[Rfam]
RNA sequence: GGGCCCGAACGUCAGCGUCAAGUCCUGGUUCGCUGGUCGGUGACCCUCGUUCACGGUCGGGUGUUCCAGAUGAGAGCCCCGCGCGACGAACCAGUCGCGCGGGCGGGUGUC
Numbered sequence: 001g002g003g004c005c006c007g008a009a010c011g012u013c014a015g016c017g018u019c020a021a022g023u024c025c026u027g028g029u030u031c032g033c034u035g036g037u038c039g040g041u042g043a044c045c046c047u048c049g050u051u052c053a054c055g056g057u058c059g060g061g062u063g064u065u066c067c068a069g070a071u072g073a074g075a076g077c078c079c080c081g082c083g084c085g086a087c088g089a090a091c092c093a094g095u096c097g098c099g100c101g102g103g104c105g106g107g108u109g110u111c
Base pairs, nucleotide, nucleotide: 001079002078003077004076011037012036013035014034015033016032021030022029039065040064041063044061045060046059048056080101081100082099083098084097085096086095087094